[Rfam]
RNA sequence: CGACGUCACGUCGGGAGAGACCGGCCCUCGAGGCCGGCGCCGAAGGAGCAACCGCCCCGGAAACUCUCAGGCAAAAGGACCGCGUGAUCGAC
Numbered sequence: 001c002g003a004c005g006u007c008a009c010g011u012c013g014g015g016a017g018a019g020a021c022c023g024g025c026c027c028u029c030g031a032g033g034c035c036g037g038c039g040c041c042g043a044a045g046g047a048g049c050a051a052c053c054g055c056c057c058c059g060g061a062a063a064c065u066c067u068c069a070g071g072c073a074a075a076a077g078g079a080c081c082g083c084g085u086g087a088u089c090g091a092c
Stems, first nucleotide, its partner, number of pairs: 006087005012082003021037004039072003042068002046066003052060002